[Rfam]
Nucleotides: 208
Base pairs, nucleotide, nucleotide: 001056002055003054004053005052006051007050010028011027012025015022016021029046030045031044032043059194060193061192064074065073066072067071077188078187079186080185081184082183083182084181085180086179087178092127093126096120097119098118099117100116101115102114103113106202107201108200109199110198111197129171130170131169132168133167134166135165136164137163141162142161144159145158146157147156148155149154
Number, partner (000 for none) and nucleotide at each position: 001056g002055u003054c004053a005052a006051u007050a008000a009000c010028c011027c012025a013000c014000c015022u016021c017000u018000a019000a020000a021016g022015a023000g024000g025012u026000a027011g028010g029046c030045u031044u032043g033000a034000a035000g036000u037000u038000a039000u040000c041000u042000c043032c044031a045030a046029g047000u048000c049000g050007u051006a052005u053004u054003g055002a056001c057000c058000a059194g060193a061192u062000u063000c064074a065073g066072u067071u068000u069000u070000a071067a072066a073065c074064u075000a076000c077188a078187u079186u080185a081184u082183u083182g084181a085180g086179g087178u088000c089000a090000u091000a092127a093126c094000a095000c096120c097119u098118a099117c100116a101115a102114a103113u104000g105000c106202u107201u108200c109199u110198c111197c112000a113103g114102u115101u116100u117099g118098u119097a120096g121000c122000c123000u124000c125000u126093g127092u128000u129171g130170c131169a132168u133167a134166u135165u136164a137163u138000u139000a140000a141162a142161c143000a144159g145158u146157u147156u148155g149154u150000g151000g152000g153000u154149a155148c156147a157146g158145a159144c160000a161142g162141u163137g164136u165135a166134a167133u168132a169131u170130g171129c172000u173000a174000u175000c176000a177000a178087g179086c180085c181084u182083u183082a184081a185080u186079a187078a188077u189000c190000u191000u192061a193060u194059c195000g196000a197111g198110g199109a200108g201107a202106g203000c204000a205000g206000u207000u208000u

Rfam assigns this 208-nucleotide sequence from Clostridioides difficile to the family "HNH endonuclease-associated RNA and ORF (HEARO) RNA".
Rfam's curators put it in the seed alignment.
The organism belongs to Clostridioides difficile, within Bacteria.
A reference for the family is Weinberg et al. (2009), "Exceptional structured noncoding RNAs revealed by bacterial metagenome analysis", Nature.
The family's consensus secondary structure is taken from published work.
Rfam classes the family as a non-coding RNA gene.